[Rfam]
RNA sequence: GGUCGAUGAUGAGCUGUAAAAGGUCUGAUUACCCACAAUCCUCUGCCCCCCCUCAGCUCCCAGCAGCCCCUGCUCUACCCAGCAUGCUCUAGACGUGCAGCACUGGUUUCAGGACCUGCUGACACACAGGAUGUGACAUCACAAUCUGAGUCAGUCAGAGAACCCAUUGGCUCAGUGUGAUGAUUGACAUUCCACAGAACCAAUCGGCAUGGAGUAAGGGGGCGGGGCCAGAGGACAGGGAGCUGAUCACAAGUUUUCAAGCUGAGACC
Numbered sequence: 001g002g003u004c005g006a007u008g009a010u011g012a013g014c015u016g017u018a019a020a021a022g023g024u025c026u027g028a029u030u031a032c033c034c035a036c037a038a039u040c041c042u043c044u045g046c047c048c049c050c051c052c053u054c055a056g057c058u059c060c061c062a063g064c065a066g067c068c069c070c071u072g073c074u075c076u077a078c079c080c081a082g083c084a085u086g087c088u089c090u091a092g093a094c095g096u097g098c099a100g101c102a103c104u105g106g107u108u109u110c111a112g113g114a115c116c117u118g119c120u121g122a123c124a125c126a127c128a129g130g131a132u133g134u135g136a137c138a139u140c141a142c143a144a145u146c147u148g149a150g151u152c153a154g155u156c157a158g159a160g161a162a163c164c165c166a167u168u169g170g171c172u173c174a175g176u177g178u179g180a181u182g183a184u185u186g187a188c189a190u191u192c193c194a195c196a197g198a199a200c201c202a203a204u205c206g207g208c209a210u211g212g213a214g215u216a217a218g219g220g221g222g223c224g225g226g227g228c229c230a231g232a233g234g235a236c237a238g239g240g241a242g243c244u245g246a247u248c249a250c251a252a253g254u255u256u257u258c259a260a261g262c263u264g265a266g267a268c269c
Base pairs, nucleotide, nucleotide: 001269002268003267004266038247039246040245043225044224045223046222047221048220049219050218057214058213059212060211061121062120063119064118065117066116079106080105081104082103085100087097129192130191131190132189133188134187146175147174148173149172150171151170152169153168154167155166

Rfam assigns this 269-nucleotide RNA sequence from Merluccius polli to the family "Small Cajal body specific RNA 6".
By type it is a small Cajal body RNA.
U88 is small Cajal body specific RNA (scaRNA). scaRNAs are a novel class of small nuclear RNAs which localise to the Cajal bodies. U88 is found associated with both fibrillarin and Gar1p and co-localises with coilin in Cajal bodies.
On this family, see Darzacq et al., EMBO J 2002: "Cajal body-specific small nuclear RNAs: a novel class of 2'-O-methylation and pseudouridylation guide RNAs".
It scores 104 bits against the family's covariance model.